[Rfam]
RNA: DUF3800-X RNA
Organism: Methanobacterium paludis
RNA sequence: CAGUGAGUAAGUCCUUUCGAAAGAAUGAGGCCCGUGGACACGGGGUGGGACAAGUAGGAAUGGGUUCACCU
Numbered sequence: 001c002a003g004u005g006a007g008u009a010a011g012u013c014c015u016u017u018c019g020a021a022a023g024a025a026u027g028a029g030g031c032c033c034g035u036g037g038a039c040a041c042g043g044g045g046u047g048g049g050a051c052a053a054g055u056a057g058g059a060a061u062g063g064g065u066u067c068a069c070c071u
Base pairs, nucleotide, nucleotide: 003069004068005067006066012064013063014062016059017058018057031044032043033042034041035040